[Rfam]
RNA sequence: CAAGCAGCGUAAAAGGCGUCUGCUAGUGGGGAGGGCUUAGGCCUGGUUCCCUGCGACCACCGUCAAAUUGCGGGAAGUUCCUAAAGCUAAUGCUACUAAGUAGGCGUCGAAAGACAGUCUAUGGCCGGGGUAAUGACCUAGGGUACAGUAAAACGCAUUAGAUGUUACAAUGGAUAAUCCGCAGCCAAGCCCUAAGUCCAGCAAUGGAUACGGGUGCAGUUCAACGACUAAAUGGUGGUGGGUUCUGGCGAGAACGCGGUCUGCGUACCUCUCCAGGGCUUAAGAUAUAGUCUGGCCGGUUGUGAAAGCAACUG
Numbered sequence: 001c002a003a004g005c006a007g008c009g010u011a012a013a014a015g016g017c018g019u020c021u022g023c024u025a026g027u028g029g030g031g032a033g034g035g036c037u038u039a040g041g042c043c044u045g046g047u048u049c050c051c052u053g054c055g056a057c058c059a060c061c062g063u064c065a066a067a068u069u070g071c072g073g074g075a076a077g078u079u080c081c082u083a084a085a086g087c088u089a090a091u092g093c094u095a096c097u098a099a100g101u102a103g104g105c106g107u108c109g110a111a112a113g114a115c116a117g118u119c120u121a122u123g124g125c126c127g128g129g130g131u132a133a134u135g136a137c138c139u140a141g142g143g144u145a146c147a148g149u150a151a152a153a154c155g156c157a158u159u160a161g162a163u164g165u166u167a168c169a170a171u172g173g174a175u176a177a178u179c180c181g182c183a184g185c186c187a188a189g190c191c192c193u194a195a196g197u198c199c200a201g202c203a204a205u206g207g208a209u210a211c212g213g214g215u216g217c218a219g220u221u222c223a224a225c226g227a228c229u230a231a232a233u234g235g236u237g238g239u240g241g242g243u244u245c246u247g248g249c250g251a252g253a254a255c256g257c258g259g260u261c262u263g264c265g266u267a268c269c270u271c272u273c274c275a276g277g278g279c280u281u282a283a284g285a286u287a288u289a290g291u292c293u294g295g296c297c298g299g300u301u302g303u304g305a306a307a308g309c310a311a312c313u314g
Base pairs, nucleotide, nucleotide: 058240059239060238061237062236064234065233069183070182071181072180073179074178079174080173081172184220185219189215190214191213192212197208198207199206200205224293226292227291228290229289230288242279243278244277245276246275247274248273250271251270252269299312300311301310302309303308
Rfam assigns this 314-nucleotide RNA sequence from Ceratopteris richardii to the family "Group I catalytic intron". Taxonomically the source falls in Ceratopteris (Eukaryota, Viridiplantae, Polypodiopsida, Polypodiales).